[Rfam]
RNA: mir-10 microRNA precursor family
Organism: Trichonephila clavipes
RNA sequence: CGAAAUGUACCCUGUAGAUCCGGGCUUUUGUGUGUAGAAAUUCAGAAGCUCGUCUCUACAGGAACGUUGCGG
Numbered sequence: 001c002g003a004a005a006u007g008u009a010c011c012c013u014g015u016a017g018a019u020c021c022g023g024g025c026u027u028u029u030g031u032g033u034g035u036a037g038a039a040a041u042u043c044a045g046a047a048g049c050u051c052g053u054c055u056c057u058a059c060a061g062g063a064a065c066g067u068u069g070c071g072g
Stems, first nucleotide, its partner, number of pairs: 002070001004068004010062002016057003021052010
Dot-bracket structure: .(.((((..((....(((..((((((((((............))))))))))..)))...))..)))).)..